[Rfam]
RNA: Purine riboswitch aptamer
RNA sequence: AUUAUUCAAAAUAAUAUAUUACGUAUAAUAGCUUUAAUAUGGAAAGCGAGUCUCUACCCUAGGCCGUAAACUUAGGACUACGUAAAGAAAAUUCAUUAUA
Numbered sequence: 001a002u003u004a005u006u007c008a009a010a011a012u013a014a015u016a017u018a019u020u021a022c023g024u025a026u027a028a029u030a031g032c033u034u035u036a037a038u039a040u041g042g043a044a045a046g047c048g049a050g051u052c053u054c055u056a057c058c059c060u061a062g063g064c065c066g067u068a069a070a071c072u073u074a075g076g077a078c079u080a081c082g083u084a085a086a087g088a089a090a091a092u093u094c095a096u097u098a099u100a
Stems, first nucleotide, its partner, number of pairs: 019085007029049001031047005058076006